The family of this 159-nucleotide sequence from Paenibacillus solani is "c-di-AMP riboswitch aptamer (ydaO/yuaA leader)". About the family: This family represents a conserved RNA structure found upstream of the ydaO and yuaA genes in Bacillus subtilis and related genes in other bacteria. Taxonomically the source falls in Paenibacillus (Bacteria, Bacillati, Bacilli, Caryophanales).

RNA sequence: AUUCCUAGAUCGCUUAAUUCUGUAACCAGAAGCGGGGGAACCAACAAGAUGAGAGGAUACUCAUCUCAGGGGUGAAUCACUGGCUAUUAUGGCAAGUGUAGGGAUACUUUCUAUCCCGAAUCCGUCAGCUAACCUCGUAAGCGUUAAGAAAGAGGAAUU
Numbered sequence: 001a002u003u004c005c006u007a008g009a010u011c012g013c014u015u016a017a018u019u020c021u022g023u024a025a026c027c028a029g030a031a032g033c034g035g036g037g038g039a040a041c042c043a044a045c046a047a048g049a050u051g052a053g054a055g056g057a058u059a060c061u062c063a064u065c066u067c068a069g070g071g072g073u074g075a076a077u078c079a080c081u082g083g084c085u086a087u088u089a090u091g092g093c094a095a096g097u098g099u100a101g102g103g104a105u106a107c108u109u110u111c112u113a114u115c116c117c118g119a120a121u122c123c124g125u126c127a128g129c130u131a132a133c134c135u136c137g138u139a140a141g142c143g144u145u146a147a148g149a150a151a152g153a154g155g156a157a158u159u
Stems, first nucleotide, its partner, number of pairs: 011143004018031003032138006042069001070123003078098004101117004